[Rfam]
The family of this 66-nucleotide RNA from Stegastes partitus is "Selenocysteine insertion sequence 1".

RNA sequence: CUUUCACUAAAUGAAGACAUCCUCUGAAACCACGUUGUGUGGAGGGUAUCUGAUGAAACGUAAAAG
Numbered sequence: 001c002u003u004u005c006a007c008u009a010a011a012u013g014a015a016g017a018c019a020u021c022c023u024c025u026g027a028a029a030c031c032a033c034g035u036u037g038u039g040u041g042g043a044g045g046g047u048a049u050c051u052g053a054u055g056a057a058a059c060g061u062a063a064a065a066g
Base pairs, nucleotide, nucleotide: 001066002065003064004063016050017049019047020046021045022044023043024042025041031039032038033037
Dot-bracket structure: ((((...........((.(((((((.....(((...))).))))))).))............))))
About the family: The incorporation of selenocysteine into a protein sequence is directed by an in-frame UGA codon (usually a stop codon) within the coding region of the mRNA. Selenoprotein mRNAs contain a conserved secondary structure in the 3' UTR that is required for the distinction of UGA stop from UGA selenocysteine. The selenocysteine insertion sequence (SECIS) is around 60 nt in length and adopts a hairpin structure which is sufficiently well-defined and conserved to act as a computational screen for selenoprotein genes. For this family Rfam cites "A novel RNA structural motif in the selenocysteine insertion element of eukaryotic selenoprotein mRNAs" (Walczak et al., RNA, 1996). It is annotated as a cis-regulatory element. The base pairs follow the family's consensus structure, which is taken from published work.